[Rfam]
RNA sequence: UAGUAUUGAGGAUAGAAAAGGCAGCUAUCACCCUCGUUAGGAGAUGUGGAAAAUGUCGCUCCACCUUUACUA
Numbered sequence: 001u002a003g004u005a006u007u008g009a010g011g012a013u014a015g016a017a018a019a020g021g022c023a024g025c026u027a028u029c030a031c032c033c034u035c036g037u038u039a040g041g042a043g044a045u046g047u048g049g050a051a052a053a054u055g056u057c058g059c060u061c062c063a064c065c066u067u068u069a070c071u072a
Stems, first nucleotide, its partner, number of pairs: 001072005008065001011029005020057004031041001046064005

This 72-nucleotide RNA sequence from Fusobacterium hwasookii belongs to the Rfam family "skipping-rope RNA". The family's RNA type in Rfam is small RNA. The family's consensus secondary structure is taken from published work.